A member of the RNA family "Molybdenum/Tungsten riboswitch aptamer (Moco RNA motif)" from Thermincola carboxydiphila, 122 nucleotides long. The family's consensus secondary structure is taken from published work.
[Rfam]
RNA sequence: CCUAAUACUUCACUCCGAGCCUACCUUCCUAAAGUUUUGUAAAAACCAUGGAGAGUAGGCCGAUAGGGUGCGGCGGGAAACGGUCGUGCCUCCCAUUGGAAAGGGGUGAUACAAGUCUGGUU
Numbered sequence: 001c002c003u004a005a006u007a008c009u010u011c012a013c014u015c016c017g018a019g020c021c022u023a024c025c026u027u028c029c030u031a032a033a034g035u036u037u038u039g040u041a042a043a044a045a046c047c048a049u050g051g052a053g054a055g056u057a058g059g060c061c062g063a064u065a066g067g068g069u070g071c072g073g074c075g076g077g078a079a080a081c082g083g084u085c086g087u088g089c090c091u092c093c094c095a096u097u098g099g100a101a102a103g104g105g106g107u108g109a110u111a112c113a114a115g116u117c118u119g120g121u122u
Base pairs, nucleotide, nucleotide: 006113011108012107013106014105015104016103019060020059021058022057023056024055026053027052028051029050034046035045036044066091067090068089069088070087071086072085073084074083076081092099093098